Record summary
This 203-nucleotide RNA sequence from Aegilops tauschii belongs to the Rfam family "MIR1435 microRNA precursor family". The source organism's lineage runs through Eukaryota, Mesangiospermae, Petrosaviidae, Triticeae and Aegilops tauschii. A search with the family's covariance model found it, with a score of 96 bits.
RNA sequence: UAGCUUUUUUCCUAAGUCAAAGAUUUAGAAUUUUGACCAACUUUAUAGAAAAGAGUAGUAGCAUAUAUGAUAUCAAAUUGAUAUAUUAUGAAAGUACAUUUCAAAACGAAUCUAGUGGUACUAAUUUAGUGCCAUAAAUGCUGCUACGUUUUCCUAUAAAAUUGGUCAAAGUUUUAAAACUUUGACUUAGGACAAAAGCUAGA
Numbered sequence: 001u002a003g004c005u006u007u008u009u010u011c012c013u014a015a016g017u018c019a020a021a022g023a024u025u026u027a028g029a030a031u032u033u034u035g036a037c038c039a040a041c042u043u044u045a046u047a048g049a050a051a052a053g054a055g056u057a058g059u060a061g062c063a064u065a066u067a068u069g070a071u072a073u074c075a076a077a078u079u080g081a082u083a084u085a086u087u088a089u090g091a092a093a094g095u096a097c098a099u100u101u102c103a104a105a106a107c108g109a110a111u112c113u114a115g116u117g118g119u120a121c122u123a124a125u126u127u128a129g130u131g132c133c134a135u136a137a138a139u140g141c142u143g144c145u146a147c148g149u150u151u152u153c154c155u156a157u158a159a160a161a162u163u164g165g166u167c168a169a170a171g172u173u174u175u176a177a178a179a180c181u182u183u184g185a186c187u188u189a190g191g192a193c194a195a196a197a198g199c200u201a202g203a
Base pairs, nucleotide, nucleotide: 005198006197007196008195009194012190013189014188015187016186017185018184019183020182021181022180024178025177026176027175032170033169034168035167036166046156047155048154050152051151052150053149056146057145058144060142061141062140063139064138066136067135068134069133073129075127076126077125078124079123080122